[Rfam]
RNA sequence: AAGAUAUGAGGAUGCUAAGAUUGGUCUUAGUGUUGAAGUGAAGACACUCAGAUCCAACUCUGAUCUUGCUGUAAAC
Dot-bracket structure: ((((...........................................................)))).........
RNA: Small nucleolar RNA SNORD19
Organism: Rousettus aegyptiacus